[Rfam]
Rfam assigns this 125-nucleotide RNA from Callorhinchus milii to the family "Small nucleolar RNA SNORD22".
On this family, see Tycowski et al., Nature 1996: "A mammalian gene with introns instead of exons generating stable RNA products".
The match comes from Rfam's covariance-model search (73 bits).
The source organism's lineage runs through Eukaryota, Metazoa, Chordata, Vertebrata and Callorhinchus.
Gene Ontology terms of the family: RNA processing and nucleolus.
The base pairs follow the family's consensus structure, which was predicted with PFOLD.
RNA sequence: UCCUCAGGAUGACUUCAUUGCAUGUCUUAUGUGUUGUCAGGAGCCAGAACCUGCAAAGGUGAACCCACUGGUAUCUGCUGCAUGAAAUGAGGCGAACCUGUUACUUGUGAACUGUCUGAUAGGAC
Numbered sequence: 001u002c003c004u005c006a007g008g009a010u011g012a013c014u015u016c017a018u019u020g021c022a023u024g025u026c027u028u029a030u031g032u033g034u035u036g037u038c039a040g041g042a043g044c045c046a047g048a049a050c051c052u053g054c055a056a057a058g059g060u061g062a063a064c065c066c067a068c069u070g071g072u073a074u075c076u077g078c079u080g081c082a083u084g085a086a087a088u089g090a091g092g093c094g095a096a097c098c099u100g101u102u103a104c105u106u107g108u109g110a111a112c113u114g115u116c117u118g119a120u121a122g123g124a125c
Base pairs, nucleotide, nucleotide: 001124002123003122004121